[Rfam]
The family of this 108-nucleotide RNA from Populus tomentosa is "MIR480 microRNA precursor family". Taxonomically the source falls in Populus (Eukaryota, Streptophyta, Pentapetalae, fabids). The match comes from Rfam's covariance-model search (68 bits). Gene Ontology terms of the family: RISC complex and miRNA-mediated post-transcriptional gene silencing.
RNA sequence: UAGUCUGUUUAAGGCAGAUCCUUAUUUAGUUAUGAUAGAUUCACACAUAAUUGCUCAAAAUCAUUUACUACUGUGCGAAUAAUAAUUUUUUUAGAUUUUGAUCGGAUU
Numbered sequence: 001u002a003g004u005c006u007g008u009u010u011a012a013g014g015c016a017g018a019u020c021c022u023u024a025u026u027u028a029g030u031u032a033u034g035a036u037a038g039a040u041u042c043a044c045a046c047a048u049a050a051u052u053g054c055u056c057a058a059a060a061u062c063a064u065u066u067a068c069u070a071c072u073g074u075g076c077g078a079a080u081a082a083u084a085a086u087u088u089u090u091u092u093a094g095a096u097u098u099u100g101a102u103c104g105g106a107u108u
Stems, first nucleotide, its partner, number of pairs: 004106004008101002012097001015094001018091001024086002027082001029080003